[Rfam]
RNA sequence: GGAUGUGAGGGCGAUCUGGCUGUGACAUCUAUCACCUCCUUGAUCACCACGGCUGAUUUGGCUAUCUGGCUGGCCAGGCGGGUGUCCCCUUCCUCCCUCACUACUCCACGUGUGUCCCUCCCGAAGAUGUGCGCUCAGUUGAAGAAGAUGACUAUCUCCCAUAGACGAGAACCAGUCUUUGGUCAAGGGUAUAUGAGUAGGUGCACUCCCCUGCUAGAACCUCCAAAUAAACUCUCAAGAACUAGGGAGAGGAGAGUGAAAAUUAACCUAGUUACAAUGAUUGUAUCCUUACAUUCUUUGAUAAAUUUCAAAAUACUUCU
Numbered sequence: 001g002g003a004u005g006u007g008a009g010g011g012c013g014a015u016c017u018g019g020c021u022g023u024g025a026c027a028u029c030u031a032u033c034a035c036c037u038c039c040u041u042g043a044u045c046a047c048c049a050c051g052g053c054u055g056a057u058u059u060g061g062c063u064a065u066c067u068g069g070c071u072g073g074c075c076a077g078g079c080g081g082g083u084g085u086c087c088c089c090u091u092c093c094u095c096c097c098u099c100a101c102u103a104c105u106c107c108a109c110g111u112g113u114g115u116c117c118c119u120c121c122c123g124a125a126g127a128u129g130u131g132c133g134c135u136c137a138g139u140u141g142a143a144g145a146a147g148a149u150g151a152c153u154a155u156c157u158c159c160c161a162u163a164g165a166c167g168a169g170a171a172c173c174a175g176u177c178u179u180u181g182g183u184c185a186a187g188g189g190u191a192u193a194u195g196a197g198u199a200g201g202u203g204c205a206c207u208c209c210c211c212u213g214c215u216a217g218a219a220c221c222u223c224c225a226a227a228u229a230a231a232c233u234c235u236c237a238a239g240a241a242c243u244a245g246g247g248a249g250a251g252g253a254g255a256g257u258g259a260a261a262a263u264u265a266a267c268c269u270a271g272u273u274a275c276a277a278u279g280a281u282u283g284u285a286u287c288c289u290u291a292c293a294u295u296c297u298u299u300g301a302u303a304a305a306u307u308u309c310a311a312a313a314u315a316c317u318u319c320u
Stems, first nucleotide, its partner, number of pairs: 001107003005101007013092002018089002024086007032078002035073002037069002042066003047061002115170002117167001119165002121138001123136002126134001139161001141159001146157003200268003207261001212260001214258001221254004228248001291320001293318001295315001297312005
RNA: 7SK RNA